[Rfam]
RNA sequence: AAUUAUCGAAAUGGCGUCCUCCUCCUCCCAACGCCUUUCGGUUUGGAUUGACAACACUCCUCCUCCCAGUUGUCGAUCAGGUUUGAAGACCCGACGGAUCCUCCCCCGUCGGGUUUUUCAU
Numbered sequence: 001a002a003u004u005a006u007c008g009a010a011a012u013g014g015c016g017u018c019c020u021c022c023u024c025c026u027c028c029c030a031a032c033g034c035c036u037u038u039c040g041g042u043u044u045g046g047a048u049u050g051a052c053a054a055c056a057c058u059c060c061u062c063c064u065c066c067c068a069g070u071u072g073u074c075g076a077u078c079a080g081g082u083u084u085g086a087a088g089a090c091c092c093g094a095c096g097g098a099u100c101c102u103c104c105c106c107c108g109u110c111g112g113g114u115u116u117u118u119c120a121u
Stems, first nucleotide, its partner, number of pairs: 007040003011037001013035005046078010087116011
A member of the RNA family "Alphaproteobacterial ar14" from Arminella tubonensis, 121 nucleotides long. The source organism's lineage runs through Bacteria, Alphaproteobacteria, Hyphomicrobiales, Rhizobiaceae and Arminella. Rfam classes the family as a small RNA. Rfam's curators write: Smr14C2 was renamed NfeR1 (Nodule Formation Efficiency RNA) highly expressed in salt stress and during the symbiotic interaction on legume roots. It scores 104 bits against the family's covariance model.